[Rfam]
Shown here is a 101-nucleotide RNA from Amazona collaria, a member of the family "Small nucleolar RNA SNORD16". Taxonomically the source falls in Amazona (Eukaryota, Saurischia, Neognathae, Telluraves). For this family Rfam cites "RNomics: an experimental approach that identifies 201 candidates for novel, small, non-messenger RNAs in mouse" (Huttenhofer et al., EMBO J, 2001). Rfam 15.1 lists 1,321 matches to the family in 655 species. A search with the family's covariance model found it, with a score of 76 bits.

RNA sequence: UGCCAUGAUGUCGUAAUUUGCAUCCCACUCUGUGCUGGGUGACAGUUGCCUGCUGUCGGGUGUCCUGGUGCAGGUGGGUGACGAACACUUGAUGCUGAGCA
Numbered sequence: 001u002g003c004c005a006u007g008a009u010g011u012c013g014u015a016a017u018u019u020g021c022a023u024c025c026c027a028c029u030c031u032g033u034g035c036u037g038g039g040u041g042a043c044a045g046u047u048g049c050c051u052g053c054u055g056u057c058g059g060g061u062g063u064c065c066u067g068g069u070g071c072a073g074g075u076g077g078g079u080g081a082c083g084a085a086c087a088c089u090u091g092a093u094g095c096u097g098a099g100c101a
Base pairs, nucleotide, nucleotide: 001101002100003099021083023081024080030073031072032071033070034069039065041057042056043055044054045053